mir-769 microRNA precursor family: a 76-nucleotide RNA sequence from Pteropus alecto. The organism belongs to Pteropus, within Eukaryota. Gene Ontology terms of the family: miRNA-mediated post-transcriptional gene silencing and RISC complex. Rfam 15.1 lists 126 matches to the family in 109 species.
RNA sequence: GCGUUCUGACCUGAGACCUCUGGGUUCUGCGCUGUGACGUUGCUUCUGAGCUGGGAUGUCUGGAGUCUUGGUUCAG
Numbered sequence: 001g002c003g004u005u006c007u008g009a010c011c012u013g014a015g016a017c018c019u020c021u022g023g024g025u026u027c028u029g030c031g032c033u034g035u036g037a038c039g040u041u042g043c044u045u046c047u048g049a050g051c052u053g054g055g056a057u058g059u060c061u062g063g064a065g066u067c068u069u070g071g072u073u074c075a076g
Stems, first nucleotide, its partner, number of pairs: 006076003011071007019063002022060002026056003031051003